[Rfam]
This 107-nucleotide sequence from Falsochrobactrum shanghaiense belongs to the Rfam family "Rhizobiales sRNA Atu_At1". Rfam classes the family as a small RNA. The organism belongs to Falsochrobactrum, within Bacteria. A reference for the family is Wilms et al. (2012), "Deep sequencing uncovers numerous small RNAs on all four replicons of the plant pathogen Agrobacterium tumefaciens", RNA Biol.

RNA sequence: GCAGCGGCCGUGUCAACCGAACGCGACGGCAUGGAAAACAUGGGAAUUUUUUCGGUUUCUUCCCGUGGCCAACGAAAUGGCAGACGAGUUCUUGUCCCGUCCGACCG
Numbered sequence: 001g002c003a004g005c006g007g008c009c010g011u012g013u014c015a016a017c018c019g020a021a022c023g024c025g026a027c028g029g030c031a032u033g034g035a036a037a038a039c040a041u042g043g044g045a046a047u048u049u050u051u052u053c054g055g056u057u058u059c060u061u062c063c064c065g066u067g068g069c070c071a072a073c074g075a076a077a078u079g080g081c082a083g084a085c086g087a088g089u090u091c092u093u094g095u096c097c098c099g100u101c102c103g104a105c106c107g
Base pairs, nucleotide, nucleotide: 006106007105009103011023012022013021025101026100027099028097029096033092034091035090036089039067040066041065042064043063044062045061068081069080070079